[Rfam]
RNA sequence: UGAAUGCAAAGUUCUGUAACACGUGGACUCUGCAUACUAUGGAAGUCAGUGCACUACAGAACUUUGUUUUCAG
Numbered sequence: 001u002g003a004a005u006g007c008a009a010a011g012u013u014c015u016g017u018a019a020c021a022c023g024u025g026g027a028c029u030c031u032g033c034a035u036a037c038u039a040u041g042g043a044a045g046u047c048a049g050u051g052c053a054c055u056a057c058a059g060a061a062c063u064u065u066g067u068u069u070u071c072a073g
Base pairs, nucleotide, nucleotide: 004069006067007066008065009064010063011062012061013060014059015058016057020051021050022049026047027046028045029044
Shown here is a 73-nucleotide RNA sequence from Megalops atlanticus, a member of the family "mir-148/mir-152 microRNA precursor family". It scores 59 bits against the family's covariance model. The literature on the family includes a 2002 paper in Curr Biol by Lagos-Quintana et al., "Identification of tissue-specific microRNAs from mouse".